[Rfam]
Overview
Rfam assigns this 99-nucleotide RNA from Quang Binh virus to the family "Insect-Specific Flavivirus 3' UTR repeats Ra and Rb elements". It is one of the family's seed sequences. The family's RNA type in Rfam is cis-regulatory element. 3' UTRs in insect specific flavivirus families present three to four repeats of conserved element Ra and Rb.
RNA sequence: CGCAAGGAAGGGAAGCUUGAGGCUACCUUAGGUGGUGACGACACCUCGCCCCCAGUCUCCCGGGUUGGGGAUAAUACAACCUCGUUGGGCUACUGCCCC
Numbered sequence: 001c002g003c004a005a006g007g008a009a010g011g012g013a014a015g016c017u018u019g020a021g022g023c024u025a026c027c028u029u030a031g032g033u034g035g036u037g038a039c040g041a042c043a044c045c046u047c048g049c050c051c052c053c054a055g056u057c058u059c060c061c062g063g064g065u066u067g068g069g070g071a072u073a074a075u076a077c078a079a080c081c082u083c084g085u086u087g088g089g090c091u092a093c094u095g096c097c098c099c
Stems, first nucleotide, its partner, number of pairs: 002056002006052002008029004015023002030046005063081005087098004